[Rfam]
RNA sequence: GGCCACCCGCAAGGGGGGCUUCAACAUAGGCGGGUUCCUCCCGCCGCUUGCUAAACGGAAGACAGAAA
Numbered sequence: 001g002g003c004c005a006c007c008c009g010c011a012a013g014g015g016g017g018g019c020u021u022c023a024a025c026a027u028a029g030g031c032g033g034g035u036u037c038c039u040c041c042c043g044c045c046g047c048u049u050g051c052u053a054a055a056c057g058g059a060a061g062a063c064a065g066a067a068a
Base pairs, nucleotide, nucleotide: 001020002019003018004017006016007015008014029045030044031043032042033041034040
Dot-bracket structure: ((((.(((.....)))))))........((((((.....)))))).......................

L2-Alphaproteobacteria ribosomal protein leader: a 68-nucleotide RNA sequence from Jhaorihella thermophila. A search with the family's covariance model found it, with a score of 61 bits. A reference for the family is Eckert and Weinberg (2020), "Discovery of 20 novel ribosomal leader candidates in bacteria and archaea", BMC Microbiol. The base pairs follow the family's consensus structure, which is taken from published work. It is annotated as a cis-regulatory leader.